[Rfam]
The record is a 434-nucleotide part of an RNA from Neurospora crassa, which matches "Eukaryotic large subunit ribosomal RNA" in Rfam.
RNA sequence: AGUAAUAGUAAAUAUUUUAAUAAGAAUUUGAAGGAUUGAAGUAGGGAAAGGUUCUAUAUAAAUAGCGGUUAAAUAUAGGUUAGUUAAUCCUAAACUAUAGGGAAGUUCCGUUUCAAAGGGGUAUUUGUACUUUGUAUAGCAAAAGGGAAGCCGGUUAAUAUUCCGGUAUUUAGAUAUAGGUUUUGUGCGGUAAUAUAAUUGAAUGCGGAGACGACGGCGGGGGCCCCGGGUAGAAUUCUCUUUUCUUUUUAAUAGUUUAUUACCUUAAAAAUAGUUUAUUUAGAGAUAGGGUUUAAUAGCCGGAAGAGUCCGAUACUUUUGUUAGGUCUAAUACGCUUUCGAUAUUCUUUAAAAAUCCGCGGGAGGGAAUAAUUCUUACGCUAGGUUAUAUUUAUAAUUGUAAUAGGUUUUUAAGGUAAAUAGUUUUUAGUUAA
Numbered sequence: 001a002g003u004a005a006u007a008g009u010a011a012a013u014a015u016u017u018u019a020a021u022a023a024g025a026a027u028u029u030g031a032a033g034g035a036u037u038g039a040a041g042u043a044g045g046g047a048a049a050g051g052u053u054c055u056a057u058a059u060a061a062a063u064a065g066c067g068g069u070u071a072a073a074u075a076u077a078g079g080u081u082a083g084u085u086a087a088u089c090c091u092a093a094a095c096u097a098u099a100g101g102g103a104a105g106u107u108c109c110g111u112u113u114c115a116a117a118g119g120g121g122u123a124u125u126u127g128u129a130c131u132u133u134g135u136a137u138a139g140c141a142a143a144a145g146g147g148a149a150g151c152c153g154g155u156u157a158a159u160a161u162u163c164c165g166g167u168a169u170u171u172a173g174a175u176a177u178a179g180g181u182u183u184u185g186u187g188c189g190g191u192a193a194u195a196u197a198a199u200u201g202a203a204u205g206c207g208g209a210g211a212c213g214a215c216g217g218c219g220g221g222g223g224c225c226c227c228g229g230g231u232a233g234a235a236u237u238c239u240c241u242u243u244u245c246u247u248u249u250u251a252a253u254a255g256u257u258u259a260u261u262a263c264c265u266u267a268a269a270a271a272u273a274g275u276u277u278a279u280u281u282a283g284a285g286a287u288a289g290g291g292u293u294u295a296a297u298a299g300c301c302g303g304a305a306g307a308g309u310c311c312g313a314u315a316c317u318u319u320u321g322u323u324a325g326g327u328c329u330a331a332u333a334c335g336c337u338u339u340c341g342a343u344a345u346u347c348u349u350u351a352a353a354a355a356u357c358c359g360c361g362g363g364a365g366g367g368a369a370u371a372a373u374u375c376u377u378a379c380g381c382u383a384g385g386u387u388a389u390a391u392u393u394a395u396a397a398u399u400g401u402a403a404u405a406g407g408u409u410u411u412u413a414a415g416g417u418a419a420a421u422a423g424u425u426u427u428u429a430g431u432u433a434a
Base pairs, nucleotide, nucleotide: 015033016032017031018030019029020028034432035431036430037429043412044411045410046409049392050391054078055077056076057075058074059073063071064070085388086387087386089146090145095139097111098110100109101108102107119132120131121130150167151166152165153164154163170384171383172382173381175380177378178377179376180374186197187196189194204361205360206359207358208357209356213346214345216343218341219340220339221338222337223336224335228329229249230248232246233245234244253302255300256299257298262292263291264290265289266288267287272282273281274280309326310325312323313322314321315320398407399406414426415425416424417423